[Rfam]
RNA sequence: GGCCUCCCUCUUUGGGGUGAUCGAUCAUGGGACUCCACCAUCGAUCACCCCAAAGAGGUGGGCC
Numbered sequence: 001g002g003c004c005u006c007c008c009u010c011u012u013u014g015g016g017g018u019g020a021u022c023g024a025u026c027a028u029g030g031g032a033c034u035c036c037a038c039c040a041u042c043g044a045u046c047a048c049c050c051c052a053a054a055g056a057g058g059u060g061g062g063c064c
Base pairs, nucleotide, nucleotide: 001064002063003062004061005060007058008057009056010055011054012053013052014051015050016049017048018047019046020045021044022043023042024041025040028037029036030035